RNA: pemK RNA
RNA sequence: AUAAUGAUACUUCUGCCAAGCCACAGCGGUGCAAAAGCACCAUCACGCAAUGGGGGCAGCUCGGAGAAAUCCUCGGAGGGGUUAGAUGCCCAUGG
Numbered sequence: 001a002u003a004a005u006g007a008u009a010c011u012u013c014u015g016c017c018a019a020g021c022c023a024c025a026g027c028g029g030u031g032c033a034a035a036a037g038c039a040c041c042a043u044c045a046c047g048c049a050a051u052g053g054g055g056g057c058a059g060c061u062c063g064g065a066g067a068a069a070u071c072c073u074c075g076g077a078g079g080g081g082u083u084a085g086a087u088g089c090c091c092a093u094g095g
Stems, first nucleotide, its partner, number of pairs: 012092001013059004060078003064074003079091003